The family of this 267-nucleotide part of an RNA from Acipenser ruthenus is "Eukaryotic large subunit ribosomal RNA".
RNA sequence: GAGUCUAGCACGCGGGCGAGUCGGUGGGCCCUUCCGAAACCACGUUGCACAAUGAAAGUGAGGCGCGCCCCGGCGGCCUCGCCACUGGGGCUGUGGUGGGAUCCCACUCGCCCCAGCGGGGACGUGGAGCAUGAGCGCACGUGAUAGGACCCGAAAGAUGGUGAACUAUGCCUGGGCAGGGCGAAGCCAGAGGAAAUGCUGGUGCAAAUCGGUCGUCCGACCUGGGUAUAGGGGCGAAAGACUAAUCGAACCAUCUAGUAGCUGGUU
Numbered sequence: 001g002a003g004u005c006u007a008g009c010a011c012g013c014g015g016g017c018g019a020g021u022c023g024g025u026g027g028g029c030c031c032u033u034c035c036g037a038a039a040c041c042a043c044g045u046u047g048c049a050c051a052a053u054g055a056a057a058g059u060g061a062g063g064c065g066c067g068c069c070c071c072g073g074c075g076g077c078c079u080c081g082c083c084a085c086u087g088g089g090g091c092u093g094u095g096g097u098g099g100g101a102u103c104c105c106a107c108u109c110g111c112c113c114c115a116g117c118g119g120g121g122a123c124g125u126g127g128a129g130c131a132u133g134a135g136c137g138c139a140c141g142u143g144a145u146a147g148g149a150c151c152c153g154a155a156a157g158a159u160g161g162u163g164a165a166c167u168a169u170g171c172c173u174g175g176g177c178a179g180g181g182c183g184a185a186g187c188c189a190g191a192g193g194a195a196a197u198g199c200u201g202g203u204g205c206a207a208a209u210c211g212g213u214c215g216u217c218c219g220a221c222c223u224g225g226g227u228a229u230a231g232g233g234g235c236g237a238a239a240g241a242c243u244a245a246u247c248g249a250a251c252c253a254u255c256u257a258g259u260a261g262c263u264g265g266u267u
Base pairs, nucleotide, nucleotide: 005147006146007145009143010142011141012140014138016136017135020048021047027041028040052059053058075092076091077090078089079088103129104127105126106125108122109121110117111116150265151264153262157255158254159253160252161251162250166231167230168229169228170227171226172225173224174223175222176221177219180210181209186203187202188201189200190199192197233243234242